[Rfam]
The family of this 86-nucleotide RNA from Asparagus officinalis is "Small nucleolar RNA Z199". The family's RNA type in Rfam is C/D-box small nucleolar RNA. The match comes from Rfam's covariance-model search (70 bits). Rfam's curators write: snoZ199 is a C/D box small nucleolar RNA, which acts as a methylation guide RNA for sites on 18S and 25S rRNA. Rice snoZ199 is reported to be homologous to Arabidopsis snoR13.
RNA sequence: GGAUCAAGUGAUGAAGAAACAAACUGCAACAAUAUGAUGGUUGAUAACCUCUUUAAUGAUUCUGAGUAUUUAAGUCUCUGAUGAUC
Numbered sequence: 001g002g003a004u005c006a007a008g009u010g011a012u013g014a015a016g017a018a019a020c021a022a023a024c025u026g027c028a029a030c031a032a033u034a035u036g037a038u039g040g041u042u043g044a045u046a047a048c049c050u051c052u053u054u055a056a057u058g059a060u061u062c063u064g065a066g067u068a069u070u071u072a073a074g075u076c077u078c079u080g081a082u083g084a085u086c
Base pairs, nucleotide, nucleotide: 001086002085004084005083006082039053040052043049